[Rfam]
RNA sequence: CUCAUUUUGUGUAAAUAACACACAUGUAUCGACACCUACGCCGGGGUGCCUGGAUGAUUUGUAAAAAUCGAUGGGUCGGUUGUACGGGAUACAUGGAGGCUUAAC
Numbered sequence: 001c002u003c004a005u006u007u008u009g010u011g012u013a014a015a016u017a018a019c020a021c022a023c024a025u026g027u028a029u030c031g032a033c034a035c036c037u038a039c040g041c042c043g044g045g046g047u048g049c050c051u052g053g054a055u056g057a058u059u060u061g062u063a064a065a066a067a068u069c070g071a072u073g074g075g076u077c078g079g080u081u082g083u084a085c086g087g088g089a090u091a092c093a094u095g096g097a098g099g100c101u102u103a104a105c
Base pairs, nucleotide, nucleotide: 023095024094025093026092027091028090029089030088035086037084038083039082040080041079042078043077048076049075050074051073052072
RNA: t44 RNA
Organism: Erwinia sp. Leaf53